[Rfam]
RNA: Alphaproteobacteria transfer-messenger RNA
Organism: Gluconobacter morbifer
RNA sequence: CCUCUUGAAGCGGAAAGCACGCACGCCUAUGUUUAGCAGUGCAAGGGGUUCGUCCCCGGCUAUGGCGAUAAACGGUAAGUGAAAUAAGUGUUGUGGACCCGGGGGCAGUGCCCGGCGUCUCCACCAUAAACAACCCCUUGCAAAAGGGGUCUGUGGGGACGAAACAGGCUCGACACGCAUGGUAAAGACUUACCUUUUGCCCGGCAUUGUACCACCGUCAUCGGGCUAAACCUACAAGUGCCAAUGAUAACUCUGAGGUGCUCGCUGUCGCUGCAUAAGCGAUAAGCGCGGUUCGGGAGGGCACCGGGCAACAGAAGCCCUCCCA
Numbered sequence: 001c002c003u004c005u006u007g008a009a010g011c012g013g014a015a016a017g018c019a020c021g022c023a024c025g026c027c028u029a030u031g032u033u034u035a036g037c038a039g040u041g042c043a044a045g046g047g048g049u050u051c052g053u054c055c056c057c058g059g060c061u062a063u064g065g066c067g068a069u070a071a072a073c074g075g076u077a078a079g080u081g082a083a084a085u086a087a088g089u090g091u092u093g094u095g096g097a098c099c100c101g102g103g104g105g106c107a108g109u110g111c112c113c114g115g116c117g118u119c120u121c122c123a124c125c126a127u128a129a130a131c132a133a134c135c136c137c138u139u140g141c142a143a144a145a146g147g148g149g150u151c152u153g154u155g156g157g158g159a160c161g162a163a164a165c166a167g168g169c170u171c172g173a174c175a176c177g178c179a180u181g182g183u184a185a186a187g188a189c190u191u192a193c194c195u196u197u198u199g200c201c202c203g204g205c206a207u208u209g210u211a212c213c214a215c216c217g218u219c220a221u222c223g224g225g226c227u228a229a230a231c232c233u234a235c236a237a238g239u240g241c242c243a244a245u246g247a248u249a250a251c252u253c254u255g256a257g258g259u260g261c262u263c264g265c266u267g268u269c270g271c272u273g274c275a276u277a278a279g280c281g282a283u284a285a286g287c288g289c290g291g292u293u294c295g296g297g298a299g300g301g302c303a304c305c306g307g308g309c310a311a312c313a314g315a316a317g318c319c320c321u322c323c324c325a
Stems, first nucleotide, its partner, number of pairs: 041060002045056004064201005074194007089179003093176003099115005116161007202217003207228001209226001212224002289306004296322002299319002